Source information
This 252-nucleotide RNA sequence from Apium graveolens belongs to the Rfam family "RNase MRP". Rfam classes the family as a ribozyme. The family is grouped with related families in Rfam's "RNaseP clan". Gene Ontology terms of the family: ribonuclease MRP complex, rRNA processing and ribonuclease MRP activity. Lineage of the source: Eukaryota > Streptophytina > eudicotyledons > Apieae > Apium.
[Rfam]
RNA sequence: GGACCAUAAGAUGACGUGAUUGGGCUUGGGCUGAUUUAUUAGUCCGGCCCAGGAAAGUCCCCGAGCCCUUGUCUGCAGAGAUGCAGGCCCGGAAACGGGUAAAACUUGAUGUGGAUAUCUAAAUCUUACGAGAUUGGGCCGAGACGAGGUGGAGCCUUGAGAUGUUUACACGAGUAAAUUUGGCUAAUAACACAGUUAUUCACGUGGUCCCAUUAUGGAUUAACUGAACGGGGCUUACAAUCUUGUGUGGUC
Numbered sequence: 001g002g003a004c005c006a007u008a009a010g011a012u013g014a015c016g017u018g019a020u021u022g023g024g025c026u027u028g029g030g031c032u033g034a035u036u037u038a039u040u041a042g043u044c045c046g047g048c049c050c051a052g053g054a055a056a057g058u059c060c061c062c063g064a065g066c067c068c069u070u071g072u073c074u075g076c077a078g079a080g081a082u083g084c085a086g087g088c089c090c091g092g093a094a095a096c097g098g099g100u101a102a103a104a105c106u107u108g109a110u111g112u113g114g115a116u117a118u119c120u121a122a123a124u125c126u127u128a129c130g131a132g133a134u135u136g137g138g139c140c141g142a143g144a145c146g147a148g149g150u151g152g153a154g155c156c157u158u159g160a161g162a163u164g165u166u167u168a169c170a171c172g173a174g175u176a177a178a179u180u181u182g183g184c185u186a187a188u189a190a191c192a193c194a195g196u197u198a199u200u201c202a203c204g205u206g207g208u209c210c211c212a213u214u215a216u217g218g219a220u221u222a223a224c225u226g227a228a229c230g231g232g233g234c235u236u237a238c239a240a241u242c243u244u245g246u247g248u249g250g251u252c
Stems, first nucleotide, its partner, number of pairs: 002252007009243003014205006022050004028045007055236003059233004074085004087100005103175001110170005125164001127162001147157004207220004

The family's consensus secondary structure is taken from published work. It scores 75 bits against the family's covariance model.